[Rfam]
RNA sequence: GGUCACGAGUGCCAGCGCUAAACCCCGGUUUGCUGGCCGGCAACCCUCCUUCCGUGGCGGGGUGCCCCGGGUGAAGACCUGGCCCGCCGAACAGCUGUCGGCGGGCAAGCACGAGGU
Numbered sequence: 001g002g003u004c005a006c007g008a009g010u011g012c013c014a015g016c017g018c019u020a021a022a023c024c025c026c027g028g029u030u031u032g033c034u035g036g037c038c039g040g041c042a043a044c045c046c047u048c049c050u051u052c053c054g055u056g057g058c059g060g061g062g063u064g065c066c067c068c069g070g071g072u073g074a075a076g077a078c079c080u081g082g083c084c085c086g087c088c089g090a091a092c093a094g095c096u097g098u099c100g101g102c103g104g105g106c107a108a109g110c111a112c113g114a115g116g117u
Base pairs, nucleotide, nucleotide: 001079002078003077004076009038011037012036013035014034015033016032021030022029039066040065041064044062045061046060048057049056082106083105084104085103086102087101088100089099090098
Dot-bracket structure: ((((....(.((((((....((......)).)))))))(((..(((.((......))..))).))).........))))..(((((((((.......)))))))))...........
Rfam assigns this 117-nucleotide sequence from Arthrobacter sp. SW1 to the family "SAM (S-adenosyl methionine) riboswitch aptamer".
It scores 113 bits against the family's covariance model.
SAM-IV is a mRNA element that regulates gene expression via direct sensing of S-adenosylmethionine (SAM or AdoMet).
The family is grouped with related families in Rfam's "SAM clan".
A reference for the family is Weinberg et al. (2008), "The aptamer core of SAM-IV riboswitches mimics the ligand-binding site of SAM-I riboswitches", RNA.